[Rfam]
Nucleotides: 086
Base pairs, nucleotide, nucleotide: 001086002085003084004083005082006081007080009078012027013026014025015024016023017022028046029045030044031043032042033041048061049060050059051058052057063077064076065075066074
Number, partner (000 for none) and nucleotide at each position: 001086g002085c003084c004083c005082g006081g007080a008000u009078g010000a011000c012027c013026c014025u015024c016023g017022g018000u019000g020000g021000u022017c023016c024015g025014g026013g027012g028046u029045g030044c031043a032042g033041g034000c035000u036000u037000c038000a039000a040000a041033c042032c043031u044030g045029u046028a047000g048061a049060c050059g051058c052057c053000u054000a055000g056000c057052g058051g059050c060049g061048u062000a063077g064076u065075g066074g067000u068000u069000c070000g071000a072000u073000u074066c075065c076064a077063c078009c079000u080007u081006u082005c083004g084003g085002g086001u
Shown here is an 86-nucleotide RNA from Steinernema hermaphroditum, a member of the family "Selenocysteine transfer RNA". Lineage of the source: Eukaryota > Opisthokonta > Bilateria > Steinernematidae > Steinernema.